[Rfam]
The record is a 128-nucleotide RNA sequence from Coriobacteriaceae bacterium CHKCI002, which matches "TPP riboswitch aptamer (THI element)" in Rfam. It scores 60 bits against the family's covariance model. Taxonomically the source falls in Coriobacteriaceae (Bacteria, Bacillati, Actinomycetota, Coriobacteriia).

RNA sequence: ACUUCAUAUCCGGGGAGCUCGCUGUUCGCUGCGGCGACGGGCGGGCUGAGAGGAAGCGCCGGUGUACGCUUCGACCCGACGAACCUGACAUGGGUAAUGCCAACGAAGGGAGUUUUAUGACGCAGAUC
Numbered sequence: 001a002c003u004u005c006a007u008a009u010c011c012g013g014g015g016a017g018c019u020c021g022c023u024g025u026u027c028g029c030u031g032c033g034g035c036g037a038c039g040g041g042c043g044g045g046c047u048g049a050g051a052g053g054a055a056g057c058g059c060c061g062g063u064g065u066a067c068g069c070u071u072c073g074a075c076c077c078g079a080c081g082a083a084c085c086u087g088a089c090a091u092g093g094g095u096a097a098u099g100c101c102a103a104c105g106a107a108g109g110g111a112g113u114u115u116u117a118u119g120a121c122g123c124a125g126a127u128c
Stems, first nucleotide, its partner, number of pairs: 006116001008114001010112001011078004017046007053072005084109003091102003